[Rfam]
RNA sequence: UCAGUCAACCUAGAACUAUUUAUAACCAAAACCCUAAUGGAAGUUUAGUAGUGCUAAACUACUAUUCAAGAGUACAAUGGACUAUACAACGGUCAACCAAGCAUAAUGCUUAGGUCAGAAGAAGGAUAUGGGUUACUUGCGAAUAAGAUAUACAAAUAAGCAAGAUAGUUCUUUU
Dot-bracket structure: ...........(((((((....(((((..........((......((((((.......))))))..........))...((((.......)))).(((((((.....)))).)))...............)))))(((((...................))))).)))))))...
RNA: RAGATH-9 RNA